[Rfam]
RNA sequence: GAAGGUCGCCGCAACGGUAAUUCAAUUUAGUACGAGAGGAACCGUUGAUUCAGAUAAUUGGUUUUUGCGGCUGUCUGACCAGGCAGUGCCGCGACGCUACCAUCUGCCGGAUAAUGGCUGAACGCCUCUAAGUCAGAAUCCGUGCCGGAACGCGGCGAUGUUGCCCCGCACGU
Numbered sequence: 001g002a003a004g005g006u007c008g009c010c011g012c013a014a015c016g017g018u019a020a021u022u023c024a025a026u027u028u029a030g031u032a033c034g035a036g037a038g039g040a041a042c043c044g045u046u047g048a049u050u051c052a053g054a055u056a057a058u059u060g061g062u063u064u065u066u067g068c069g070g071c072u073g074u075c076u077g078a079c080c081a082g083g084c085a086g087u088g089c090c091g092c093g094a095c096g097c098u099a100c101c102a103u104c105u106g107c108c109g110g111a112u113a114a115u116g117g118c119u120g121a122a123c124g125c126c127u128c129u130a131a132g133u134c135a136g137a138a139u140c141c142g143u144g145c146c147g148g149a150a151c152g153c154g155g156c157g158a159u160g161u162u163g164c165c166c167c168g169c170a171c172g173u
Base pairs, nucleotide, nucleotide: 005159006158007157008156009155010154011153012152015147016146017145018144020050022048023047024046025045026044051106052105053104054103055102059099060098061097066093067092068091069090070089071086072085073084074083075082076081108142109141110140115135116134117133118132119131
This 173-nucleotide part of an RNA from Aspergillus bombycis belongs to the Rfam family "Eukaryotic large subunit ribosomal RNA".
On this family, see Cannone et al., BMC Bioinformatics 2002: "The comparative RNA web (CRW) site: an online database of comparative sequence and structure information for ribosomal, intron, and other RNAs".
It scores 3331 bits against the family's covariance model.